RNA sequence: UCAUGUGCAAUUCAACGUCACACAUAUACCGGCACAGCUCGUCUGGGUGCCCGCUGGCCUUUUCAGACUGACGGGUUGACGACUGGGGUAUAUGGAGGCUUAAC
Numbered sequence: 001u002c003a004u005g006u007g008c009a010a011u012u013c014a015a016c017g018u019c020a021c022a023c024a025u026a027u028a029c030c031g032g033c034a035c036a037g038c039u040c041g042u043c044u045g046g047g048u049g050c051c052c053g054c055u056g057g058c059c060u061u062u063u064c065a066g067a068c069u070g071a072c073g074g075g076u077u078g079a080c081g082a083c084u085g086g087g088g089u090a091u092a093u094g095g096a097g098g099c100u101u102a103a104c
Stems, first nucleotide, its partner, number of pairs: 023094008035085003039082005049076005